[Rfam]
RNA sequence: GCCCUGUGGUUCCUGGGCCCUGCUAUGUCCGUGCGGUGCCCCAGGGUGGGAAAGGGCCGACAGUGACACUGUGGGUCACGCGUGGAGUCUGUGACUCGUGAGCAGCUUCCACAGCCCGGCCGCAGGGACACAC
Number, nucleotide and partner (000 for none) at each position: 001g057002c056003c055004c054005u000006g000007u000008g000009g000010u000011u046012c045013c044014u043015g042016g041017g040018c000019c000020c036021u035022g034023c033024u000025a000026u000027g000028u000029c000030c000031g000032u000033g023034c022035g021036g020037u000038g000039c000040c017041c016042c015043a014044g013045g012046g011047u000048g000049g000050g000051a000052a000053a000054g004055g003056g002057c001058c000059g000060a000061c000062a000063g000064u000065g000066a000067c000068a000069c125070u000071g123072u122073g121074g120075g000076u118077c000078a000079c000080g115081c114082g112083u111084g110085g109086a000087g107088u000089c105090u104091g103092u102093g000094a000095c000096u000097c000098g000099u000100g000101a000102g092103c091104a090105g089106c000107u087108u000109c085110c084111a083112c082113a000114g081115c080116c000117c000118g076119g000120c074121c073122g072123c071124a000125g069126g000127g000128a000129c000130a000131c000132a000133c000